[Rfam]
RNA sequence: ACGAUGUUCCGCUACUACUUAGUUUAGUAAGAGCAUUAG
Numbered sequence: 001a002c003g004a005u006g007u008u009c010c011g012c013u014a015c016u017a018c019u020u021a022g023u024u025u026a027g028u029a030a031g032a033g034c035a036u037u038a039g
Stems, first nucleotide, its partner, number of pairs: 003037007013029005

Ribosomal protein L19 leader: a 39-nucleotide RNA from Halalkalibacillus sediminis. It scores 39 bits against the family's covariance model. The base pairs follow the family's consensus structure, which was predicted with CMfinder. Gene Ontology term of the family: regulation of gene expression. This family is a putative r-protein leader autoregulatory structure found in B. subtilis and other low-GC Gram-positive bacteria. It is located in the 5' untranslated regions of mRNAs encoding ribosomal protein L19 (rplS).